[Rfam]
RNA sequence: UUUAAUCUUCAGGGCAGGGUGAAAUUCCCGAUCGGCGGUAAAGUCCGCGAGCCGAGGUGAAAACCGAAGCAGGAACUGGUGAAAUUCCAGUACCGACAGUAAUAGUCUGGAUGGAAGAAGAGCAGA
Number, nucleotide and partner (000 for none) at each position: 001u000002u000003u124004a000005a000006u121007c120008u119009u118010c117011a000012g000013g000014g000015c000016a000017g029018g028019g027020u000021g000022a000023a000024a000025u000026u000027c019028c018029c017030g000031a106032u105033c095034g094035g048036c047037g046038g045039u000040a000041a000042a000043g093044u092045c038046c037047g036048c035049g000050a000051g000052c000053c069054g000055a000056g000057g000058u000059g000060a000061a000062a000063a000064c000065c000066g000067a000068a000069g053070c000071a000072g000073g000074a000075a091076c090077u089078g088079g087080u000081g000082a000083a000084a000085u000086u000087c079088c078089a077090g076091u075092a044093c043094c034095g033096a000097c109098a108099g107100u000101a000102a000103u000104a000105g032106u031107c099108u098109g097110g000111a000112u000113g000114g000115a000116a000117g010118a009119a008120g007121a006122g000123c000124a003125g000126a000
The record is a 126-nucleotide sequence from Actinobacillus indolicus, which matches "FMN riboswitch aptamer (RFN element)" in Rfam.
The family's consensus secondary structure is taken from published work.
Lineage of the source: Bacteria > Pseudomonadati > Gammaproteobacteria > Pasteurellales > Actinobacillus.